This 70-nucleotide RNA from Polypedilum vanderplanki belongs to the Rfam family "mir-2 microRNA precursor family".
NCBI's taxonomy places the organism under Eukaryota, Opisthokonta, Eumetazoa, Allotriocarida, Polypedilum.
Its family is annotated with miRNA-mediated post-transcriptional gene silencing and RISC complex in the Gene Ontology.
The base pairs follow the family's consensus structure, which was predicted with PFOLD.
Nucleotides: 070
Stems, first nucleotide, its partner, number of pairs: 005064002007061006013054002016051006024045002
Number, partner (000 for none) and nucleotide at each position: 001000a002000a003000c004000c005064u006063c007061u008060c009059a010058a011057a012056g013054u014053g015000a016051c017050u018049g019048u020047g021046a022000a023000a024045u025044g026000c027000u028000u029000u030000c031000a032000a033000c034000u035000g036000c037000a038000g039000u040000u041000u042000c043000a044025u045024a046021u047020c048019a049018c050017a051016g052000c053014c054013a055000g056012c057011u058010u059009u060008g061007a062000a063006g064005a065000g066000c067000u068000a069000a070000a